[Rfam]
RNA sequence: AUGGGGUACGAAUGCGCCUGGUGGUGACUGCUCACCUUUGCGUGGGAAACGCCUCAAAGAAGC
Numbered sequence: 001a002u003g004g005g006g007u008a009c010g011a012a013u014g015c016g017c018c019u020g021g022u023g024g025u026g027a028c029u030g031c032u033c034a035c036c037u038u039u040g041c042g043u044g045g046g047a048a049a050c051g052c053c054u055c056a057a058a059g060a061a062g063c
Stems, first nucleotide, its partner, number of pairs: 002056006014043004020036001022034003
Background:
The family of this 63-nucleotide RNA from Trypanosoma cruzi is "Trypanosomatid snoRNA TB8Cs3H1". The source organism's lineage runs through Eukaryota, Kinetoplastea, Metakinetoplastina, Trypanosoma and Schizotrypanum. Rfam's curators put it in the seed alignment. Rfam classes the family as an H/ACA-box small nucleolar RNA. The base pairs follow the family's consensus structure, which was predicted with WAR.